Rfam assigns this 171-nucleotide RNA sequence from Bordetella genomosp. 4 to the family "Manganese Mn2+ riboswitch aptamer (yybP-ykoY)". It scores 74 bits against the family's covariance model. Taxonomically the source falls in Bordetella (Bacteria, Pseudomonadota, Burkholderiales, Alcaligenaceae).
Nucleotides: 171
Base pairs, nucleotide, nucleotide: 026042027041028040044087045086046085047084048083049082050081051080052079053078061077062076063075065073088171089170090169091168092167094165
Number, partner (000 for none) and nucleotide at each position: 001000c002000c003000c004000a005000c006000u007000g008000u009000c010000a011000u012000u013000g014000g015000g016000g017000a018000g019000u020000a021000g022000c023000c024000a025000u026042c027041c028040u029000u030000u031000g032000a033000u034000c035000c036000c037000c038000a039000a040028a041027g042026g043000a044087g045086u046085c047084a048083g049082c050081g051080u052079c053078a054000a055000c056000a057000g058000a059000c060000u061077u062076g063075g064000u065073g066000g067000u068000c069000u070000u071000g072000a073065c074000c075063c076062c077061a078053u079052g080051g081050c082049g083048c084047u085046g086045a087044c088171g089170g090169u091168u092167c093000c094165c095000g096000a097000g098000c099000c100000g101000c102000g103000g104000c105000u106000u107000u108000g109000c110000g111000c112000g113000c114000g115000g116000c117000c118000g119000g120000a121000c122000c123000a124000g125000c126000c127000a128000g129000g130000c131000g132000a133000g134000a135000c136000c137000u138000u139000u140000g141000g142000c143000c144000g145000c146000a147000g148000u149000g150000c151000g152000u153000u154000c155000a156000c157000c158000u159000c160000g161000c162000c163000g164000g165094g166000c167092g168091a169090g170089c171088c